[Rfam]
Background
Rfam assigns this 120-nucleotide RNA from Cellulosimicrobium funkei to the family "TPP riboswitch aptamer (THI element)". The base pairs follow the family's consensus structure, which is taken from published work. The family has 115 seed sequences and 16,130 matches in Rfam 15.1. The organism belongs to Cellulosimicrobium, within Bacteria.
RNA sequence: CGAACGCCCCCGGGGAGCGCACGAGCGCUGAGAGUGCAGGCCGGACACCCGUCCCUCCUGCAGACCCGUGGAACCUGAUCUGGUUCGUACCAGCGAAGGGAGCAGGGCCGACGUCACCGU
Numbered sequence: 001c002g003a004a005c006g007c008c009c010c011c012g013g014g015g016a017g018c019g020c021a022c023g024a025g026c027g028c029u030g031a032g033a034g035u036g037c038a039g040g041c042c043g044g045a046c047a048c049c050c051g052u053c054c055c056u057c058c059u060g061c062a063g064a065c066c067c068g069u070g071g072a073a074c075c076u077g078a079u080c081u082g083g084u085u086c087g088u089a090c091c092a093g094c095g096a097a098g099g100g101a102g103c104a105g106g107g108c109c110g111a112c113g114u115c116a117c118c119g120u
Base pairs, nucleotide, nucleotide: 006108007107008106009105011068012067013066014065017028018027019026020025035062036061037060038059039058074099075098076097080093081092082091083090